[Rfam]
A member of the RNA family "Small nucleolar RNA SNORA9" from Cyprinus carpio, 131 nucleotides long.
Its family is annotated with RNA processing and nucleolus in the Gene Ontology.

RNA sequence: UUGCAGGCUACCAGCAAGGUUGAGUCAUUGUGACUCUGUCCUUUCCUGAAAUGUCUGCUAGAUUGAUUUUGAGGUGGUUUGAGGCCUGCUGUGGUGCCCUUCCAGCAUGGUUAUAUAAUCUUCAAACAUUU
Numbered sequence: 001u002u003g004c005a006g007g008c009u010a011c012c013a014g015c016a017a018g019g020u021u022g023a024g025u026c027a028u029u030g031u032g033a034c035u036c037u038g039u040c041c042u043u044u045c046c047u048g049a050a051a052u053g054u055c056u057g058c059u060a061g062a063u064u065g066a067u068u069u070u071g072a073g074g075u076g077g078u079u080u081g082a083g084g085c086c087u088g089c090u091g092u093g094g095u096g097c098c099c100u101u102c103c104a105g106c107a108u109g110g111u112u113a114u115a116u117a118a119u120c121u122u123c124a125a126a127c128a129u130u131u
Stems, first nucleotide, its partner, number of pairs: 003058006017042003022036005070124005085110002087107003091103001093101001